[Rfam]
RNA sequence: UUCCGGUGAAGAAACACCCGAAUGUCUUACCUGCUGUCCUAGUCCCAAAGCCUGCAAAGGUGAACCCACUGGGACUGGCUGGGGGAAAAAGAGGAAAUUUUCUUCCAGAAAGAACUGUCUGAGGGAU
Dot-bracket structure: ((((......................................................................................................................)))).